[Rfam]
RNA: pemK RNA
RNA sequence: ACAAUGAUACUUCUGUCCAGUCACAGCCCCGGCAUUUGCCGGGAUCAUGCAAUGAGGGCAGCUCGGCGAGAACCGCGGAGGGGUGAGAGUCCCAUGA
Numbered sequence: 001a002c003a004a005u006g007a008u009a010c011u012u013c014u015g016u017c018c019a020g021u022c023a024c025a026g027c028c029c030c031g032g033c034a035u036u037u038g039c040c041g042g043g044a045u046c047a048u049g050c051a052a053u054g055a056g057g058g059c060a061g062c063u064c065g066g067c068g069a070g071a072a073c074c075g076c077g078g079a080g081g082g083g084u085g086a087g088a089g090u091c092c093c094a095u096g097a
Stems, first nucleotide, its partner, number of pairs: 012094001013061006062080003066076003081093003